[Rfam]
RNA sequence: CCGUGCUAAGCGGGGAGGUAGCGGUGCCCUGUACUCGCAAUCCGCUCUAGCGAGGCCGAAUCCCUUCUAGAGGUUAGUGUACUGUAGGGCUGCCUCAAGUAAGUGGUGUUGACGCCUGGGUCCUGCGCAAUGGGAAUCCACGAACCAUGUCAGGUCCGGAAGGAAGCAGCAUUAAGUGGAAGCUCCCAUGUGCCGCAGGGUUGCCUGGGUCGAGCUAACUGCUUGAGUAACGCCUAUGGUUGCUAAUCGAAGGAAGGUGCACGG
Numbered sequence: 001c002c003g004u005g006c007u008a009a010g011c012g013g014g015g016a017g018g019u020a021g022c023g024g025u026g027c028c029c030u031g032u033a034c035u036c037g038c039a040a041u042c043c044g045c046u047c048u049a050g051c052g053a054g055g056c057c058g059a060a061u062c063c064c065u066u067c068u069a070g071a072g073g074u075u076a077g078u079g080u081a082c083u084g085u086a087g088g089g090c091u092g093c094c095u096c097a098a099g100u101a102a103g104u105g106g107u108g109u110u111g112a113c114g115c116c117u118g119g120g121u122c123c124u125g126c127g128c129a130a131u132g133g134g135a136a137u138c139c140a141c142g143a144a145c146c147a148u149g150u151c152a153g154g155u156c157c158g159g160a161a162g163g164a165a166g167c168a169g170c171a172u173u174a175a176g177u178g179g180a181a182g183c184u185c186c187c188a189u190g191u192g193c194c195g196c197a198g199g200g201u202u203g204c205c206u207g208g209g210u211c212g213a214g215c216u217a218a219c220u221g222c223u224u225g226a227g228u229a230a231c232g233c234c235u236a237u238g239g240u241u242g243c244u245a246a247u248c249g250a251a252g253g254a255a256g257g258u259g260c261a262c263g264g
Base pairs, nucleotide, nucleotide: 001264002263003262004261005260006259010056011055012030013029014028015027017025019023034054035053036052037051038050063257064256065255066254067253068252072248073247074246075245076244081240082239083238084237085236086235087234088233091229092228095226096225097224098223099222100221103219104218105216106215107214114210115209116208117207118206119205120204121203122199123198124197125196126195127194128190129189131188132187133186134185135184137180138179139178140177141176147172148171149170150169155164156163157162

Shown here is a 264-nucleotide sequence from Metabacillus litoralis, a member of the family "Bacterial large signal recognition particle RNA". The signal recognition particle (SRP) is a universally conserved ribonucleoprotein involved in the co-translational targeting of proteins to membranes. The base pairs follow the family's consensus structure, which is taken from published work. Rfam links the family to the GO terms SRP-dependent cotranslational protein targeting to membrane, signal sequence recognition and signal recognition particle, plasma membrane targeting.